This 356-nucleotide part of an RNA from Bifidobacterium stellenboschense belongs to the Rfam family "Bacterial small subunit ribosomal RNA". The source organism's lineage runs through Bacteria, Actinomycetes, Bifidobacteriales, Bifidobacteriaceae and Bifidobacterium. For this family Rfam cites "Crystal structure of the ribosome at 5.5 A resolution" (Yusupov et al., Science, 2001).

RNA sequence: GGCGUAAAGGGCUCGUAGGCGGUUCGUCGCGUCCGGUGUGAAAGCCCAUCGCUUAACGGUGGGUCUGCGCCGGGUACGGGCGGGCUGGAGUGCGGUAGGGGAGACUGGAAUUCCCGGUGUAACGGUGGAAUGUGUAGAUAUCGGGAGGAACACCAAUGGCGAAGGCAGGUCUCUGGGCCGUUACUGACGCUGAGGAGCGAAAGCGUGGGGAGCGAACAGGAUUAGAUACCCUGGUAGUCCACGCCGUAAACGGUGGAUGCUGGAUGUGGGGCCCUUUCCACGGGUCCCGUGUCGGAGCCAACGCGUUAAGCAUCCCGCCUGGGGAGUACGGCCGCAAGGCUAAAACUCAAAGAAAU
Numbered sequence: 001g002g003c004g005u006a007a008a009g010g011g012c013u014c015g016u017a018g019g020c021g022g023u024u025c026g027u028c029g030c031g032u033c034c035g036g037u038g039u040g041a042a043a044g045c046c047c048a049u050c051g052c053u054u055a056a057c058g059g060u061g062g063g064u065c066u067g068c069g070c071c072g073g074g075u076a077c078g079g080g081c082g083g084g085c086u087g088g089a090g091u092g093c094g095g096u097a098g099g100g101g102a103g104a105c106u107g108g109a110a111u112u113c114c115c116g117g118u119g120u121a122a123c124g125g126u127g128g129a130a131u132g133u134g135u136a137g138a139u140a141u142c143g144g145g146a147g148g149a150a151c152a153c154c155a156a157u158g159g160c161g162a163a164g165g166c167a168g169g170u171c172u173c174u175g176g177g178c179c180g181u182u183a184c185u186g187a188c189g190c191u192g193a194g195g196a197g198c199g200a201a202a203g204c205g206u207g208g209g210g211a212g213c214g215a216a217c218a219g220g221a222u223u224a225g226a227u228a229c230c231c232u233g234g235u236a237g238u239c240c241a242c243g244c245c246g247u248a249a250a251c252g253g254u255g256g257a258u259g260c261u262g263g264a265u266g267u268g269g270g271g272c273c274c275u276u277u278c279c280a281c282g283g284g285u286c287c288c289g290u291g292u293c294g295g296a297g298c299c300a301a302c303g304c305g306u307u308a309a310g311c312a313u314c315c316c317g318c319c320u321g322g323g324g325a326g327u328a329c330g331g332c333c334g335c336a337a338g339g340c341u342a343a344a345a346c347u348c349a350a351a352g353a354a355a356u
Stems, first nucleotide, its partner, number of pairs: 001319003009316001011198004016192001018191003022085007030078002032074009045063007089185003092181005100174007107151001111147008122133003159166002203244006212238002217233004255315006263293012297304002321348003330341004